[Rfam]
RNA: Plastid-psbA-1 3UTR RNA
Organism: Dendrobium nobile
RNA sequence: UGGAAGCUCCAUCUAUAAAUGGAUAAUACUUUUGUAUGUAUAUGAAUUUUUGAAGGUAGCAAUCCCCCAAUAUCUUGUUCUAAGAACAAGAUAUUGGGGGAUUGCUACCUU
Numbered sequence: 001u002g003g004a005a006g007c008u009c010c011a012u013c014u015a016u017a018a019a020u021g022g023a024u025a026a027u028a029c030u031u032u033u034g035u036a037u038g039u040a041u042a043u044g045a046a047u048u049u050u051u052g053a054a055g056g057u058a059g060c061a062a063u064c065c066c067c068c069a070a071u072a073u074c075u076u077g078u079u080c081u082a083a084g085a086a087c088a089a090g091a092u093a094u095u096g097g098g099g100g101a102u103u104g105c106u107a108c109c110u111u
Base pairs, nucleotide, nucleotide: 008023009022010021011020012019053111054110055109056108057107058106059105060104061103062102063101064100065099068097070094072092073091074090075089076088